Nucleotides: 069
Base pairs, nucleotide, nucleotide: 010025011024012023013022016060017059018058019057020056021055037050038049039048040047
Number, partner (000 for none) and nucleotide at each position: 001000c002000a003000a004000a005000g006000u007000c008000a009000g010025g011024g012023g013022a014000a015000u016060g017059g018058g019057a020056c021055u022013u023012c024011c025010c026000u027000g028000u029000u030000a031000u032000a033000a034000a035000c036000c037050g038049c039048u040047a041000a042000u043000a044000a045000a046000g047040u048039a049038g050037c051000u052000g053000a054000u055021a056020g057019u058018u059017c060016c061000u062000g063000c064000c065000g066000g067000a068000g069000u
Fluoride riboswitch aptamer (crcB RNA motif): a 69-nucleotide RNA sequence. Pairs were carried over by alignment from the consensus structure, which is taken from published work. A reference for the family is Zhao et al. (2017), "An excited state underlies gene regulation of a transcriptional riboswitch", Nat Chem Biol.